OxyS RNA: a 113-nucleotide sequence from [Enterobacter] lignolyticus.
RNA sequence: GAAACAAGGCGGAAUCUCAUUUAACCCCUGAAGUCCAGCCGCGUUCUGAGAGUUUCUCUCAUACCCGAAACAACUAAAGCCAACGUGAACUUUUGCGGACCCCGUGGUCCGCU
Dot-bracket structure: (.(((...((((.((.((...........)).))....))))))).)..(.((.........)).)............................(((((((....))))))).

For this family Rfam cites "The Escherichia coli OxyS regulatory RNA represses fhlA translation by blocking ribosome binding" (Altuvia et al., EMBO J, 1998). OxyS is a small untranslated RNA which is induced in response to oxidative stress in Escherichia coli. This novel RNA acts as a global regulator to activate or repress the expression of as many as 40 genes, including the fhlA-encoded transcriptional activator and the rpoS-encoded sigma(s) subunit of RNA polymerase. OxyS is bound by the Hfq protein, that increases the OxyS RNA interaction with its target messages. The match comes from Rfam's covariance-model search (76 bits). Lineage of the source: Bacteria > Pseudomonadati > Enterobacterales > Pluralibacter > [Enterobacter] lignolyticus. The family's consensus secondary structure is taken from published work.